[Rfam]
RNA sequence: CACCGAGUCCGAGAUUCCGGGCGUCACCGGAAUCUGGUGCAAAAGGGA
Numbered sequence: 001c002a003c004c005g006a007g008u009c010c011g012a013g014a015u016u017c018c019g020g021g022c023g024u025c026a027c028c029g030g031a032a033u034c035u036g037g038u039g040c041a042a043a044a045g046g047g048a
Stems, first nucleotide, its partner, number of pairs: 013034008

Shown here is a 48-nucleotide RNA sequence from Streptomyces griseoflavus, a member of the family "raiA-hairpin RNA". The base pairs follow the family's consensus structure, which is taken from published work. Rfam's curators put it in the seed alignment. The family's RNA type in Rfam is small RNA. The source organism's lineage runs through Bacteria, Actinomycetota, Actinomycetes, Streptomycetaceae and Streptomyces griseoflavus.